[Rfam]
RNA sequence: UAAUGAUCUUGUUAGGAGAGACUCCUAGAUGAACAUAGGUUGUUGCCCAAAAAUGUGGAGACACGCCAAUGGGUAGAACAGGCACGAUCGGAUUAAGGUCUGCUUAAGGCAACUGAUUCUAUAAAGAAUCUACGUCAUCUAGUGUUGAAACCAGUACGAGGAGAAUCGUUU
Numbered sequence: 001u002a003a004u005g006a007u008c009u010u011g012u013u014a015g016g017a018g019a020g021a022c023u024c025c026u027a028g029a030u031g032a033a034c035a036u037a038g039g040u041u042g043u044u045g046c047c048c049a050a051a052a053a054u055g056u057g058g059a060g061a062c063a064c065g066c067c068a069a070u071g072g073g074u075a076g077a078a079c080a081g082g083c084a085c086g087a088u089c090g091g092a093u094u095a096a097g098g099u100c101u102g103c104u105u106a107a108g109g110c111a112a113c114u115g116a117u118u119c120u121a122u123a124a125a126g127a128a129u130c131u132a133c134g135u136c137a138u139c140u141a142g143u144g145u146u147g148a149a150a151c152c153a154g155u156a157c158g159a160g161g162a163g164a165a166u167c168g169u170u171u
Base pairs, nucleotide, nucleotide: 005167006166007165009163010162011157012156013096015152016151020146021145022144025142026141027140028139029138030137031136032135039113040112041111042110043109045074046073047072048071049070054065055064056063057062081104082103083102084101087099088098089097115130116129117128
M-box riboswitch aptamer (ykoK leader): a 171-nucleotide sequence from Isachenkonia alkalipeptolytica. The organism belongs to Isachenkonia, within Bacteria. Rfam describes the family as follows. M-box riboswitch, also know as ykoK leader is described as a metaloregulatory RNA that sense divalent metals and function as a genetic control element of genes related to divalent metal transport in bacteria. It was first reported upstream of the B.subtilis ykoK gene and genes with related functions in other bacteria.